[Rfam]
RNA sequence: CCUAUGGAGUGUUAUAUCAAACGAAAGUAGCCAAGAUCAUGGUCAAAUCGGAUACGUCGAAAUAGGAA
Numbered sequence: 001c002c003u004a005u006g007g008a009g010u011g012u013u014a015u016a017u018c019a020a021a022c023g024a025a026a027g028u029a030g031c032c033a034a035g036a037u038c039a040u041g042g043u044c045a046a047a048u049c050g051g052a053u054a055c056g057u058c059g060a061a062a063u064a065g066g067a068a
Base pairs, nucleotide, nucleotide: 001066002065003064004063005062009055010054011053012052013051022050023049024048030043031042032041
Background: RAGATH-18 RNA: a 68-nucleotide sequence. Rfam describes the family as follows. Actinobacteria, Firmicutes, Fusobacteria, Thermotogae (1 example).